Record summary
Shown here is a 114-nucleotide RNA sequence from Cellulomonas triticagri, a member of the family "ALIL pseudoknot". Taxonomically the source falls in Cellulomonas (Bacteria, Bacillati, Actinomycetes, Micrococcales). It is annotated as a cis-regulatory element. Its family is annotated with positive regulation of translational frameshifting in the Gene Ontology. The base pairs follow the family's consensus structure, which is taken from published work.
[Rfam]
RNA sequence: GGCUUUCUUCGCGGCGGAGCUCGACCGCCCGUCACCCAGGUAGUCGAGUUCAUCGACACCCACCGUGAACAGUUCGGGGUCGAGCCGAUCUGCCAGGUCCUGCAGGUCGCCCCG
Numbered sequence: 001g002g003c004u005u006u007c008u009u010c011g012c013g014g015c016g017g018a019g020c021u022c023g024a025c026c027g028c029c030c031g032u033c034a035c036c037c038a039g040g041u042a043g044u045c046g047a048g049u050u051c052a053u054c055g056a057c058a059c060c061c062a063c064c065g066u067g068a069a070c071a072g073u074u075c076g077g078g079g080u081c082g083a084g085c086c087g088a089u090c091u092g093c094c095a096g097g098u099c100c101u102g103c104a105g106g107u108c109g110c111c112c113c114g
Base pairs, nucleotide, nucleotide: 013029014028015027016026017025075114076113077112078111079110086109087108089106090105091104092103093102